This 124-nucleotide sequence belongs to the Rfam family "Small nucleolar RNA SNORA24".
About the family: ACA24 is a member of the H/ACA class of snoRNA that guide the sites of modification of uridines to pseudouridines.
The family's RNA type in Rfam is H/ACA-box small nucleolar RNA.

RNA sequence: CUCCAUGUAUCUUUGGGACCUGUCAGCCGUGGCAGUCUCCCUUCCUAGCCAUGGAAGAGCAUAUCCUUGUUUAUUGGCAAAGCUGUCACCAUUUAAUUGGUAUCAGAUUCUGACUUGCACAAGU
Numbered sequence: 001c002u003c004c005a006u007g008u009a010u011c012u013u014u015g016g017g018a019c020c021u022g023u024c025a026g027c028c029g030u031g032g033c034a035g036u037c038u039c040c041c042u043u044c045c046u047a048g049c050c051a052u053g054g055a056a057g058a059g060c061a062u063a064u065c066c067u068u069g070u071u072u073a074u075u076g077g078c079a080a081a082g083c084u085g086u087c088a089c090c091a092u093u094u095a096a097u098u099g100g101u102a103u104c105a106g107a108u109u110c111u112g113a114c115u116u117g118c119a120c121a122a123g124u
Stems, first nucleotide, its partner, number of pairs: 002055006015041004020035005074122003077118004083106003088101004